[Rfam]
RNA sequence: AAUAAUGAAUUUGGCAAGAUGUCGGAAUAGCUGAGAGCACAAAUAACAAAAUGCCAAUUAAUUUAUACAGCGGCUAUGCCUCAUCUAGUCAAUUGCAUUCAUU
Numbered sequence: 001a002a003u004a005a006u007g008a009a010u011u012u013g014g015c016a017a018g019a020u021g022u023c024g025g026a027a028u029a030g031c032u033g034a035g036a037g038c039a040c041a042a043a044u045a046a047c048a049a050a051a052u053g054c055c056a057a058u059u060a061a062u063u064u065a066u067a068c069a070g071c072g073g074c075u076a077u078g079c080c081u082c083a084u085c086u087a088g089u090c091a092a093u094u095g096c097a098u099u100c101a102u103u
Stems, first nucleotide, its partner, number of pairs: 005098003009094001011092005017086005024080002027077007